[Rfam]
Nucleotides: 075
Stems, first nucleotide, its partner, number of pairs: 003073004010066001012064005018058001020056003024053008
Number, partner (000 for none) and nucleotide at each position: 001000g002000g003073c004072g005071u006070g007000u008000u009000g010066g011000c012064a013063g014062u015061g016060u017000g018058g019000u020056u021055a022054g023000c024053u025052g026051g027050u028049u029048g030047u031046g032000u033000a034000g035000c036000u037000u038000a039000u040000a041000g042000a043000a044000a045000g046031c047030a048029c049028g050027a051026c052025c053024g054022c055021u056020a057000u058018c059000g060016a061015c062014a063013c064012u065000g066010c067000a068000a069000u070006u071005a072004u073003g074000a075000c
Shown here is a 75-nucleotide RNA sequence from Nasonia vitripennis, a member of the family "mir-34 microRNA precursor family". From the family's description: Human mir-34a was discovered computationally and later experimentally verified. The mature sequence is excised from the 5' arm of the hairpin. Rfam 15.1 lists 2,256 matches to the family in 820 species. A search with the family's covariance model found it, with a score of 57 bits. The literature on the family includes a 2003 paper in Science by Lim et al., "Vertebrate microRNA genes".